The record is a 110-nucleotide RNA from Oryza meridionalis, which matches "MIR1428 microRNA precursor family" in Rfam. The literature on the family includes a 2008 paper in BMC Plant Biol by Sunkar et al., "Identification of novel and candidate miRNAs in rice by high throughput sequencing". Rfam links the family to the GO terms miRNA-mediated post-transcriptional gene silencing and RISC complex. Rfam 15.1 lists 96 matches to the family in 9 species.
RNA sequence: GUGCUUUGCGAAUUUACAGAUCCUAUCUUGUGGUAUGAACUGAGUACGCGAUAAUUUAUGGUGUGUAUUGGGUGCUUACCAUAAGAUAAUGUCAUAAAUUCGCAAAGCAU
Numbered sequence: 001g002u003g004c005u006u007u008g009c010g011a012a013u014u015u016a017c018a019g020a021u022c023c024u025a026u027c028u029u030g031u032g033g034u035a036u037g038a039a040c041u042g043a044g045u046a047c048g049c050g051a052u053a054a055u056u057u058a059u060g061g062u063g064u065g066u067a068u069u070g071g072g073u074g075c076u077u078a079c080c081a082u083a084a085g086a087u088a089a090u091g092u093c094a095u096a097a098a099u100u101c102g103c104a105a106a107g108c109a110u
Stems, first nucleotide, its partner, number of pairs: 002109015019093003024088012037075001040072002043069004048064003
Dot-bracket structure: .(((((((((((((((..(((..((((((((((((.(..((.((((.(((...........))).)))).))..).))))))))))))..))).))))))))))))))).